[Rfam]
Shown here is a 69-nucleotide RNA sequence from Medicago truncatula, a member of the family "MIR2629 microRNA precursor family". Lineage of the source: Eukaryota > Tracheophyta > fabids > Trifolieae > Medicago. Pairs were carried over by alignment from the consensus structure, which was predicted with RNAalifold. A search with the family's covariance model found it, with a score of 71 bits.
RNA sequence: UGCCGAAGUUUUCCUCGGUAGUUAACUGCAGCCGAUUCCAUAAAUCGAUAGUUAACUGCCGAAGGACAU
Numbered sequence: 001u002g003c004c005g006a007a008g009u010u011u012u013c014c015u016c017g018g019u020a021g022u023u024a025a026c027u028g029c030a031g032c033c034g035a036u037u038c039c040a041u042a043a044a045u046c047g048a049u050a051g052u053u054a055a056c057u058g059c060c061g062a063a064g065g066a067c068a069u
Stems, first nucleotide, its partner, number of pairs: 012065002015062014